[Rfam]
RNA sequence: GGGUCAAUGAUGACAACAUUAAGUCAAUUACAGAAUGAUGACAUAAAAAUCAUGCUCAAUAGGAUUACGCUGAGGCCC
Dot-bracket structure: ((((((.((..........................................................)).))..))))
Rfam assigns this 78-nucleotide sequence from Rattus norvegicus to the family "Small nucleolar RNA SNORD115".
The source organism's lineage runs through Eukaryota, Eumetazoa, Craniata, Theria and Rattus.
Pairs were carried over by alignment from the consensus structure, which was predicted with PFOLD.
For this family Rfam cites "Identification of brain-specific and imprinted small nucleolar RNA genes exhibiting an unusual genomic organization" (Cavaille et al., Proc Natl Acad Sci U S A, 2000).
The match comes from Rfam's covariance-model search (81 bits).